[Rfam]
RNA sequence: UAUUGAACAGGGCAAACUUCGCGAAAGCGGAGGACGCAAAGUCAACGGUCUAAUGAGCCACCCGGCUCGAUGACGGCAGGACUGCCAAA
Numbered sequence: 001u002a003u004u005g006a007a008c009a010g011g012g013c014a015a016a017c018u019u020c021g022c023g024a025a026a027g028c029g030g031a032g033g034a035c036g037c038a039a040a041g042u043c044a045a046c047g048g049u050c051u052a053a054u055g056a057g058c059c060a061c062c063c064g065g066c067u068c069g070a071u072g073a074c075g076g077c078a079g080g081a082c083u084g085c086c087a088a089a
Stems, first nucleotide, its partner, number of pairs: 012037002017032006040083004047077001048074003055068004